permuted transfer-messenger RNA: a 232-nucleotide RNA from Allobosea thiooxidans. It scores 154 bits against the family's covariance model. Rfam classes the family as a non-coding RNA gene.
RNA sequence: GGCGAUAAACGGACUUCGUAAUAAGCCUUUCGGACCCGGGGGCGGUACCCGGCGCCUCCACCAAAGCCCUGACGGGCUGCAUCCUGCGGCGAAAGCACAGGGUUUUGGCGGGGGCGAAAUAGGAUCGACGAGGGUGUAAAGGUUGUUCUUUUGCUCGGCAUGGUUCCGCCGUUAUCGGGCCAAAAGCAUAGUUGCCAACGACAACAAUGCUCGGGUCGCCGUCGCCGCGUAA
Number, nucleotide and partner (000 for none) at each position: 001g155002g154003c153004g152005a151006u000007a000008a000009a000010c000011g000012g000013a000014c145015u000016u000017c142018g000019u000020a000021a000022u000023a000024a000025g000026c134027c133028u132029u000030u131031c130032g129033g000034a000035c000036c052037c051038g050039g049040g048041g000042g000043c000044g000045g000046u000047a000048c040049c039050c038051g037052g036053c116054g115055c114056c113057u112058c111059c110060a000061c000062c000063a000064a000065a000066g000067c000068c000069c000070u000071g000072a000073c000074g000075g000076g000077c000078u000079g000080c000081a000082u000083c000084c000085u000086g000087c000088g000089g000090c000091g000092a000093a000094a000095g000096c000097a000098c000099a000100g000101g000102g000103u000104u000105u000106u000107g000108g000109c000110g059111g058112g057113g056114g055115c054116g053117a000118a000119a000120u000121a000122g000123g000124a000125u000126c000127g000128a000129c032130g031131a030132g028133g027134g026135u000136g000137u000138a000139a000140a000141g000142g017143u000144u000145g014146u000147u000148c000149u000150u000151u005152u004153g003154c002155u001156c171157g170158g169159c168160a000161u000162g000163g000164u000165u000166c000167c000168g159169c158170c157171g156172u000173u000174a000175u000176c000177g000178g000179g000180c000181c000182a000183a000184a000185a000186g000187c000188a000189u000190a000191g000192u000193u000194g000195c000196c000197a000198a000199c000200g000201a000202c000203a000204a000205c000206a000207a000208u000209g000210c000211u000212c000213g000214g000215g000216u000217c000218g000219c000220c000221g000222u000223c000224g000225c000226c000227g000228c000229g000230u000231a000232a000